A member of the RNA family "Bacteroidetes FopS (family of paralogous sRNAs)" from Hoylesella oralis, 67 nucleotides long.
[Rfam]
RNA sequence: GUGUUUUUCAUGGUAUUAGAUUUAAGGUUAACAAAGAUUGGACUACAGCGGUAGUCCUUUUUUAUGU
Numbered sequence: 001g002u003g004u005u006u007u008u009c010a011u012g013g014u015a016u017u018a019g020a021u022u023u024a025a026g027g028u029u030a031a032c033a034a035a036g037a038u039u040g041g042a043c044u045a046c047a048g049c050g051g052u053a054g055u056c057c058u059u060u061u062u063u064a065u066g067u
Stems, first nucleotide, its partner, number of pairs: 040057007
Notes
Rfam links the family to the GO term sRNA-mediated gene silencing. From the family's description: The RNA-binding protein RbpB and BTncRNA_FopS sRNA are involved in the post-transcription regulation of polysaccharide utilisation loci (PUL). FopS sRNAs function as post-transcriptional repressors by binding to the vicinity of the start codon of the first mRNA of target PUL polycistrons, typically corresponding to the cognate SusC homolog, impeding translation of the respective glycan transporter.